[Rfam]
RNA sequence: UGAGGUGUGGGCCCGGCCCCUGGAGCGGGGCCUGGGCAGCCCCGUGUGAUGAGGAAGGAAGGCAGGGCCCCCGCUCCCCGGGCCUGACCCCAC
Numbered sequence: 001u002g003a004g005g006u007g008u009g010g011g012c013c014c015g016g017c018c019c020c021u022g023g024a025g026c027g028g029g030g031c032c033u034g035g036g037c038a039g040c041c042c043c044g045u046g047u048g049a050u051g052a053g054g055a056a057g058g059a060a061g062g063c064a065g066g067g068c069c070c071c072c073g074c075u076c077c078c079c080g081g082g083c084c085u086g087a088c089c090c091c092a093c
Base pairs, nucleotide, nucleotide: 001092002091004089005088006087009085010084011083012082013081014080015079016078022077023076024075025074026073027072028071029070030069031067032066033065035063037061040058041057042054043053
Rfam assigns this 93-nucleotide RNA sequence from Pan troglodytes to the family "mir-940 microRNA precursor family". The family's consensus secondary structure was predicted with RNAalifold. A reference for the family is Strozzi et al. (2009), "Annotation of 390 bovine miRNA genes by sequence similarity with other species", Anim Genet. The sequence is in the family's curated seed alignment.